[Rfam]
RNA: Small nucleolar RNA snR80
RNA sequence: GUUUCCCUACCAACACUCUGGUGUAAACCUUCGGAUUUGUUCGAUACGCUGUGGUUUAUUCCUAUUUAGGUGCUAGGAAGAUCGAAUGACUCUUUACUCACCGCGUAUUCACUCCAACGGAGACAGAUGGAUAUAGUGGUCCUUUUUUGAAGCCAAAAU
Numbered sequence: 001g002u003u004u005c006c007c008u009a010c011c012a013a014c015a016c017u018c019u020g021g022u023g024u025a026a027a028c029c030u031u032c033g034g035a036u037u038u039g040u041u042c043g044a045u046a047c048g049c050u051g052u053g054g055u056u057u058a059u060u061c062c063u064a065u066u067u068a069g070g071u072g073c074u075a076g077g078a079a080g081a082u083c084g085a086a087u088g089a090c091u092c093u094u095u096a097c098u099c100a101c102c103g104c105g106u107a108u109u110c111a112c113u114c115c116a117a118c119g120g121a122g123a124c125a126g127a128u129g130g131a132u133a134u135a136g137u138g139g140u141c142c143u144u145u146u147u148u149g150a151a152g153c154c155a156a157a158a159u
Stems, first nucleotide, its partner, number of pairs: 007076003020062002023059002026056004031044004088154001090152002101139004105134003109131002